[Rfam]
RNA sequence: GGCCUCCUGGUACUUACCCACAGGCUGCGUUCUUACACUGGCUGUACAGAAAGAGGAGCUAGAGUAAACCUACCUAAUAUACACCUCAGCCCAGGCCCUGUGCCUGGUCUGUAUUGUGAAUGGGGGGGACAUAG
Numbered sequence: 001g002g003c004c005u006c007c008u009g010g011u012a013c014u015u016a017c018c019c020a021c022a023g024g025c026u027g028c029g030u031u032c033u034u035a036c037a038c039u040g041g042c043u044g045u046a047c048a049g050a051a052a053g054a055g056g057a058g059c060u061a062g063a064g065u066a067a068a069c070c071u072a073c074c075u076a077a078u079a080u081a082c083a084c085c086u087c088a089g090c091c092c093a094g095g096c097c098c099u100g101u102g103c104c105u106g107g108u109c110u111g112u113a114u115u116g117u118g119a120a121u122g123g124g125g126g127g128g129a130c131a132u133a134g
Stems, first nucleotide, its partner, number of pairs: 002060001004058005021044003027038001029036002073126003077121002087111003091107006
Rfam assigns this 134-nucleotide RNA to the family "Small nucleolar RNA SNORA51". The family's consensus secondary structure was predicted with PFOLD. It is one of the family's seed sequences. Its family is annotated with nucleolus and RNA processing in the Gene Ontology. The family has 9 seed sequences and 2,121 matches in Rfam 15.1. ACA51 is a member of the H/ACA class of snoRNA that guide the sites of modification of uridines to pseudouridines.